[Rfam]
Shown here is an 88-nucleotide RNA sequence from Erinaceus europaeus, a member of the family "Small nucleolar RNA SNORD70". Its family is annotated with nucleolus and RNA processing in the Gene Ontology. The match comes from Rfam's covariance-model search (86 bits). NCBI's taxonomy places the organism under Eukaryota, Euteleostomi, Amniota, Theria, Erinaceus. The family's RNA type in Rfam is C/D-box small nucleolar RNA. snoRNA HBII-234 belongs to the C/D family of snoRNAs. It is the human orthologue of the mouse MBII-234 and is predicted to guide 2'O-ribose methylation of the small 18S rRNA on position A512. For this family Rfam cites "RNomics: an experimental approach that identifies 201 candidates for novel, small, non-messenger RNAs in mouse" (Huttenhofer et al., EMBO J, 2001).
RNA sequence: AUCGUUGUUGUCAAUGAUGUAGUCAUGUUGGAACUGAAUCUUAAGUGAUCUGACAUAUAUUCGUCACUACCACUGAGACAGCAAUGUA
Numbered sequence: 001a002u003c004g005u006u007g008u009u010g011u012c013a014a015u016g017a018u019g020u021a022g023u024c025a026u027g028u029u030g031g032a033a034c035u036g037a038a039u040c041u042u043a044a045g046u047g048a049u050c051u052g053a054c055a056u057a058u059a060u061u062c063g064u065c066a067c068u069a070c071c072a073c074u075g076a077g078a079c080a081g082c083a084a085u086g087u088a
Base pairs, nucleotide, nucleotide: 003086004085005084006083007082008081009080010079011078012077